[Rfam]
RNA sequence: UCUUCGUUUCACACAAUCUCUCACCGGUCAGAGAGACGAGAGAGUGUGCGAAAUUAAGAGA
Number, nucleotide and partner (000 for none) at each position: 001u059002c058003u057004u056005c000006g054007u053008u000009u000010c050011a000012c048013a047014c046015a045016a000017u043018c000019u041020c040021u039022c038023a000024c000025c000026g000027g000028u000029c000030a000031g000032a000033g000034a000035g000036a000037c000038g022039a021040g020041a019042g000043a017044g000045u015046g014047u013048g012049c000050g010051a000052a000053a007054u006055u000056a004057a003058g002059a001060g000061a000
The record is a 61-nucleotide sequence from Pristionchus pacificus, which matches "mir-8364 microRNA precursor family" in Rfam. The base pairs follow the family's consensus structure, which was predicted with RNAalifold.